[Rfam]
RNA sequence: CUGAUACUUCGGGGCAGGGUGAAAUUCCCUACCGGCGGUGAUAAGGUCGUUUACCUUUUAGUCCGUGACCCGUGACAACAGUAGUUGAAGCGGUGGAUCUGGUGAAAUUCCAGAGCCGACAGUUAAAGUCUGGAUGGGAGAAGUGAGGA
Numbered sequence: 001c002u003g004a005u006a007c008u009u010c011g012g013g014g015c016a017g018g019g020u021g022a023a024a025u026u027c028c029c030u031a032c033c034g035g036c037g038g039u040g041a042u043a044a045g046g047u048c049g050u051u052u053a054c055c056u057u058u059u060a061g062u063c064c065g066u067g068a069c070c071c072g073u074g075a076c077a078a079c080a081g082u083a084g085u086u087g088a089a090g091c092g093g094u095g096g097a098u099c100u101g102g103u104g105a106a107a108u109u110c111c112a113g114a115g116c117c118g119a120c121a122g123u124u125a126a127a128g129u130c131u132g133g134a135u136g137g138g139a140g141a142a143g144u145g146a147g148g149a
Base pairs, nucleotide, nucleotide: 005145006144007143008142009141010140017029018028019027031129032128033118034117035066036065037064038063061116062115070093071092072091073090098114099113100112101111102110120132121131122130
Background: The family of this 149-nucleotide sequence from Geomicrobium sp. JCM 19039 is "FMN riboswitch aptamer (RFN element)". A search with the family's covariance model found it, with a score of 112 bits. The organism belongs to Geomicrobium, within Bacteria. Rfam links the family to the GO term FMN binding.